[Rfam]
RNA sequence: UAAGGGGGAGGAGAGACAAAUUUCAUAUGCUUCUUUGUUUUUGAAAGAAACGAGGAGAACAAAUAUAAUGACUGAGAUAUCCUUUCAGUCAUCAUUCUUUGAUCGAUGAUUCAAUUCUUGCUCGUCCAUGU
Numbered sequence: 001u002a003a004g005g006g007g008g009a010g011g012a013g014a015g016a017c018a019a020a021u022u023u024c025a026u027a028u029g030c031u032u033c034u035u036u037g038u039u040u041u042u043g044a045a046a047g048a049a050a051c052g053a054g055g056a057g058a059a060c061a062a063a064u065a066u067a068a069u070g071a072c073u074g075a076g077a078u079a080u081c082c083u084u085u086c087a088g089u090c091a092u093c094a095u096u097c098u099u100u101g102a103u104c105g106a107u108g109a110u111u112c113a114a115u116u117c118u119u120g121c122u123c124g125u126c127c128a129u130g131u
Base pairs, nucleotide, nucleotide: 006041007040008039009038011036013033014032015031017029018028070127073124074123075122076121079115080114088110089109090108091107092106093105096102097101
RNA: Small nucleolar RNA snoR111